[Rfam]
RNA sequence: UUGAUGGCGGGAGGAGAGACCACAAUGUUGUGGCGCCGAAGGAGCAAGCCCAUUCGGGUGAAUCUCUCAGGCAAAAGGACGCCCGUCGGACG
Numbered sequence: 001u002u003g004a005u006g007g008c009g010g011g012a013g014g015a016g017a018g019a020c021c022a023c024a025a026u027g028u029u030g031u032g033g034c035g036c037c038g039a040a041g042g043a044g045c046a047a048g049c050c051c052a053u054u055c056g057g058g059u060g061a062a063u064c065u066c067u068c069a070g071g072c073a074a075a076a077g078g079a080c081g082c083c084c085g086u087c088g089g090a091c092g
Base pairs, nucleotide, nucleotide: 006087007086008085009084010083011082013080020033021032022031023030035072036071037070038068039067042066043065044064048059049058

This 92-nucleotide RNA from Marininema mesophilum belongs to the Rfam family "Glycine riboswitch aptamer". NCBI's taxonomy places the organism under Bacteria, Bacillota, Bacilli, Thermoactinomycetaceae, Marininema. It scores 70 bits against the family's covariance model. Gene Ontology term of the family: glycine biosynthetic process.